[Rfam]
Selenocysteine insertion sequence 1: a 63-nucleotide sequence from Platysternon megacephalum.
Rfam describes the family as follows. The incorporation of selenocysteine into a protein sequence is directed by an in-frame UGA codon (usually a stop codon) within the coding region of the mRNA. Selenoprotein mRNAs contain a conserved secondary structure in the 3' UTR that is required for the distinction of UGA stop from UGA selenocysteine. The selenocysteine insertion sequence (SECIS) is around 60 nt in length and adopts a hairpin structure which is sufficiently well-defined and conserved to act as a computational screen for selenoprotein genes.
By type it is a cis-regulatory element.
Lineage of the source: Eukaryota > Gnathostomata > Testudines > Cryptodira > Platysternon.

RNA sequence: UUGUGAUUAUGAUGGUGCUGUAUUAAAUCCUUUGGGAAGUACAGUGCCUGAUGUUUGCGCCAA
Numbered sequence: 001u002u003g004u005g006a007u008u009a010u011g012a013u014g015g016u017g018c019u020g021u022a023u024u025a026a027a028u029c030c031u032u033u034g035g036g037a038a039g040u041a042c043a044g045u046g047c048c049u050g051a052u053g054u055u056u057g058c059g060c061c062a063a
Stems, first nucleotide, its partner, number of pairs: 001063003014048010028036003